The record is a 209-nucleotide RNA sequence from Cereibacter sphaeroides, which matches "permuted transfer-messenger RNA" in Rfam. The base pairs follow the family's consensus structure, which is taken from published work.

RNA sequence: GGAUGUAGACGGGCUUGUGAAGCUGGAUCGGACGGGGGUGCGAUUCCCCCCACCUCCACCAUUUUACCCUUGGAAACAAGGGCUUGCGGGGGUGAUAUAGGGUCGACGGACGGUGGAGUGAGUACCUGCAUCUCGGUUGGACGCGCCGUUAUCUGCUCAAUCGCAUAGUUGCCAACGACAACCGUGCUCCGGUGGCUCUGGCUGCGUAA
Numbered sequence: 001g002g003a004u005g006u007a008g009a010c011g012g013g014c015u016u017g018u019g020a021a022g023c024u025g026g027a028u029c030g031g032a033c034g035g036g037g038g039u040g041c042g043a044u045u046c047c048c049c050c051c052a053c054c055u056c057c058a059c060c061a062u063u064u065u066a067c068c069c070u071u072g073g074a075a076a077c078a079a080g081g082g083c084u085u086g087c088g089g090g091g092g093u094g095a096u097a098u099a100g101g102g103u104c105g106a107c108g109g110a111c112g113g114u115g116g117a118g119u120g121a122g123u124a125c126c127u128g129c130a131u132c133u134c135g136g137u138u139g140g141a142c143g144c145g146c147c148g149u150u151a152u153c154u155g156c157u158c159a160a161u162c163g164c165a166u167a168g169u170u171g172c173c174a175a176c177g178a179c180a181a182c183c184g185u186g187c188u189c190c191g192g193u194g195g196c197u198c199u200g201g202c203u204g205c206g207u208a209a
Base pairs, nucleotide, nucleotide: 001133002132003131004130005129014122015121016120017119024112025111028109029108030107034050035049036048037047038046051094052093053092054091055090056089057088134148135147136146137145
It is one of the family's seed sequences. It is annotated as a non-coding RNA gene.